[Rfam]
RNA sequence: AUGCACUAUGCUUCGAAGGCUUUGUCAAAUUGAAUGGCAUAGUCUUGGAGCAAACAGUGCAUAAAUUGAGAGCUGUUAGAUCAGCAAGCGGCCAGACAACCGUCGGGAUAGAUCCACAGGUGAAACAGAUGUUUCUCUGUUUUCAUCUACUAAAUCUAUCUUACACUA
Numbered sequence: 001a002u003g004c005a006c007u008a009u010g011c012u013u014c015g016a017a018g019g020c021u022u023u024g025u026c027a028a029a030u031u032g033a034a035u036g037g038c039a040u041a042g043u044c045u046u047g048g049a050g051c052a053a054a055c056a057g058u059g060c061a062u063a064a065a066u067u068g069a070g071a072g073c074u075g076u077u078a079g080a081u082c083a084g085c086a087a088g089c090g091g092c093c094a095g096a097c098a099a100c101c102g103u104c105g106g107g108a109u110a111g112a113u114c115c116a117c118a119g120g121u122g123a124a125a126c127a128g129a130u131g132u133u134u135c136u137c138u139g140u141u142u143u144c145a146u147c148u149a150c151u152a153a154a155u156c157u158a159u160c161u162u163a164c165a166c167u168a
Stems, first nucleotide, its partner, number of pairs: 002061005009052003013049002016046006023039005105162008122143007
The family of this 168-nucleotide RNA from Raphanus sativus is "small nucleolar RNA snoR143". Rfam 15.1 lists 660 matches to the family in 212 species. Its family is annotated with nucleolus and RNA processing in the Gene Ontology. By type it is an H/ACA-box small nucleolar RNA. A reference for the family is Chen and Wu (2009), "Mining small RNA sequencing data: a new approach to identify small nucleolar RNAs in Arabidopsis", Nucleic Acids Res. NCBI's taxonomy places the organism under Eukaryota, Viridiplantae, Streptophytina, Gunneridae, Raphanus. The base pairs follow the family's consensus structure, which was predicted with RNAalifold.